RNA sequence: AGGGUUUGUACGGGGGACAUAGCAGAAGCAUUCACGUCGUGACUCCCGUCAGGUCGUACCUACUAAUACCUGGCAAUUCUGCC
Numbered sequence: 001a002g003g004g005u006u007u008g009u010a011c012g013g014g015g016g017a018c019a020u021a022g023c024a025g026a027a028g029c030a031u032u033c034a035c036g037u038c039g040u041g042a043c044u045c046c047c048g049u050c051a052g053g054u055c056g057u058a059c060c061u062a063c064u065a066a067u068a069c070c071u072g073g074c075a076a077u078u079c080u081g082c083c
Stems, first nucleotide, its partner, number of pairs: 013046004018041001022082006028040002050072005

Shown here is an 83-nucleotide RNA sequence from Alligator sinensis, a member of the family "Mammalian CPEB3 ribozyme". Rfam 15.1 lists 5,706 matches to the family in 197 species. Lineage of the source: Eukaryota > Chordata > Vertebrata > Sauropsida > Alligator.